[Rfam]
RNA: Trypanosomatid snoRNA TB11Cs2H1
Organism: Trypanosoma conorhini
Nucleotides: 071
Base pairs, nucleotide, nucleotide: 004064005063006062007061008060009059017051018050019049020048021047022046023045024043025042026041027040
Number, partner (000 for none) and nucleotide at each position: 001000a002000a003000c004064g005063c006062u007061c008060u009059c010000u011000c012000a013000u014000g015000u016000a017051g018050u019049g020048c021047g022046c023045c024043c025042g026041u027040c028000g029000c030000a031000a032000a033000a034000c035000c036000a037000a038000c039000a040027g041026a042025c043024g044000c045023g046022g047021c048020g049019c050018a051017c052000g053000a054000a055000a056000c057000u058000g059009g060008g061007g062006a063005g064004c065000a066000a067000g068000a069000a070000c071000g